[Rfam]
RNA: Nuclear RNase P
RNA sequence: ACAGGCUGAACGCCGCGAUGCUCGUCCCGCACAGACCAAGGCUCGUCUUCGGCGACCUUUCGAGUCUAUCUCACGAGCGGGAAGGUCUGAGUAUGCUCAAGUCCCUUUGACGGCUCCACAGCUGUUGCAGGUGUUAAAUCUCACCUCAGUCGACGUACCAGAAAAACGAGCGAGCCCCGAGUGGGCCGUGUAGUUCCUUGUUCCGAAGAUGCCAGGGAAAUGCCUUGGUGGAGGAUAUAGUGUGCUCUUGAAAACACGUCACGGACUUUGGGUGCCUCCCCCUCACCUCGGCUUUUUAGGUCGAUCUCUUCCACCCUCUCUAUCACAGGGAACGCGCCAUUCUGGGGUUGUUAUUGAUGGCGCACCAUUACGUGGAUGACUGUACAAUGUGCAGAAGCUGAAACGUCGUGUUCUUUUUCUGUUAACUCGGCUAUUUGCGCCUUUCGCAAUCUCCGAGGGAACACUACAUUCCUGUACGAGGAGAGUUUUGGUGUGUUGUGGAUCCUGACCGCCUGUGAGAAUGGCGCCCUUUAGUGCAAUUCGCGGCACGCGGGAUUGCUUUGGCAUCGUUUGCCUCAUGUGCUCGCUGCCAAGGGCCGAGUGUAUGUUGGCGAGCUCCUGUGUAACUCAAUUCAGACUAGUCUCGGUCUGU
Numbered sequence: 001a002c003a004g005g006c007u008g009a010a011c012g013c014c015g016c017g018a019u020g021c022u023c024g025u026c027c028c029g030c031a032c033a034g035a036c037c038a039a040g041g042c043u044c045g046u047c048u049u050c051g052g053c054g055a056c057c058u059u060u061c062g063a064g065u066c067u068a069u070c071u072c073a074c075g076a077g078c079g080g081g082a083a084g085g086u087c088u089g090a091g092u093a094u095g096c097u098c099a100a101g102u103c104c105c106u107u108u109g110a111c112g113g114c115u116c117c118a119c120a121g122c123u124g125u126u127g128c129a130g131g132u133g134u135u136a137a138a139u140c141u142c143a144c145c146u147c148a149g150u151c152g153a154c155g156u157a158c159c160a161g162a163a164a165a166a167c168g169a170g171c172g173a174g175c176c177c178c179g180a181g182u183g184g185g186c187c188g189u190g191u192a193g194u195u196c197c198u199u200g201u202u203c204c205g206a207a208g209a210u211g212c213c214a215g216g217g218a219a220a221u222g223c224c225u226u227g228g229u230g231g232a233g234g235a236u237a238u239a240g241u242g243u244g245c246u247c248u249u250g251a252a253a254a255c256a257c258g259u260c261a262c263g264g265a266c267u268u269u270g271g272g273u274g275c276c277u278c279c280c281c282c283u284c285a286c287c288u289c290g291g292c293u294u295u296u297u298a299g300g301u302c303g304a305u306c307u308c309u310u311c312c313a314c315c316c317u318c319u320c321u322a323u324c325a326c327a328g329g330g331a332a333c334g335c336g337c338c339a340u341u342c343u344g345g346g347g348u349u350g351u352u353a354u355u356g357a358u359g360g361c362g363c364a365c366c367a368u369u370a371c372g373u374g375g376a377u378g379a380c381u382g383u384a385c386a387a388u389g390u391g392c393a394g395a396a397g398c399u400g401a402a403a404c405g406u407c408g409u410g411u412u413c414u415u416u417u418u419c420u421g422u423u424a425a426c427u428c429g430g431c432u433a434u435u436u437g438c439g440c441c442u443u444u445c446g447c448a449a450u451c452u453c454c455g456a457g458g459g460a461a462c463a464c465u466a467c468a469u470u471c472c473u474g475u476a477c478g479a480g481g482a483g484a485g486u487u488u489u490g491g492u493g494u495g496u497u498g499u500g501g502a503u504c505c506u507g508a509c510c511g512c513c514u515g516u517g518a519g520a521a522u523g524g525c526g527c528c529c530u531u532u533a534g535u536g537c538a539a540u541u542c543g544c545g546g547c548a549c550g551c552g553g554g555a556u557u558g559c560u561u562u563g564g565c566a567u568c569g570u571u572u573g574c575c576u577c578a579u580g581u582g583c584u585c586g587c588u589g590c591c592a593a594g595g596g597c598c599g600a601g602u603g604u605a606u607g608u609u610g611g612c613g614a615g616c617u618c619c620u621g622u623g624u625a626a627c628u629c630a631a632u633u634c635a636g637a638c639u640a641g642u643c644u645c646g647g648u649c650u651g652u
Stems, first nucleotide, its partner, number of pairs: 001652004007646003012547007020078005034066003087636005101266004111124005129146005152260005172247003548624007